[Rfam]
RNA sequence: UAGAGCGAGCCCGGCGUGUGAUCUUAUUGGUAGUGUGGUUGUUAAUCUAUCAUAAGACACACGCGGCUCUCUCUC
Numbered sequence: 001u002a003g004a005g006c007g008a009g010c011c012c013g014g015c016g017u018g019u020g021a022u023c024u025u026a027u028u029g030g031u032a033g034u035g036u037g038g039u040u041g042u043u044a045a046u047c048u049a050u051c052a053u054a055a056g057a058c059a060c061a062c063g064c065g066g067c068u069c070u071c072u073c074u075c
Stems, first nucleotide, its partner, number of pairs: 002074004008068004014064003019059002022057003028052005
mir-970 microRNA precursor family: a 75-nucleotide RNA sequence from Heliconius melpomene. The sequence is in the family's curated seed alignment.